RNA sequence: GUUAAUCGGAUAGCGCCAGACCUCAUUGAGGUGACGAGGAUUGAGUCAAUCGAAAUUUCGGCGGAUGGCUCAGGGUUUGUGCAGUCCACAAAAGCAGGCAAAACAGCAGCGCAAGUUGCUCGACAAAUUCUGCUUUACGCACCUAA
Numbered sequence: 001g002u003u004a005a006u007c008g009g010a011u012a013g014c015g016c017c018a019g020a021c022c023u024c025a026u027u028g029a030g031g032u033g034a035c036g037a038g039g040a041u042u043g044a045g046u047c048a049a050u051c052g053a054a055a056u057u058u059c060g061g062c063g064g065a066u067g068g069c070u071c072a073g074g075g076u077u078u079g080u081g082c083a084g085u086c087c088a089c090a091a092a093a094g095c096a097g098g099c100a101a102a103a104c105a106g107c108a109g110c111g112c113a114a115g116u117u118g119c120u121c122g123a124c125a126a127a128u129u130c131u132g133c134u135u136u137a138c139g140c141a142c143c144u145a146a
Stems, first nucleotide, its partner, number of pairs: 020032005042072005050061004073087005091136007105120006